This 81-nucleotide sequence from Paenibacillus nasutitermitis belongs to the Rfam family "c-di-GMP-I riboswitch aptamer".

Nucleotides: 081
Stems, first nucleotide, its partner, number of pairs: 012037002018031005040075004047071002049067003056061001
Number, partner (000 for none) and nucleotide at each position: 001000u002000c003000a004000c005000g006000a007000u008000a009000a010000c011000g012037g013036c014000a015000a016000a017000c018031c019030u020029g021028u022027c023000g024000a025000a026000a027022g028021g029020c030019a031018g032000c033000g034000a035000c036013g037012c038000a039000a040075a041074g042073c043072u044000a045000c046000a047071g048070g049067g050066c051065c052000u053000u054000c055000u056061c057000c058000u059000a060000u061056g062000g063000a064000u065051g066050g067049c068000a069000g070048c071047c072043a073042g074041u075040u076000a077000c078000c079000g080000a081000a
A search with the family's covariance model found it, with a score of 68 bits.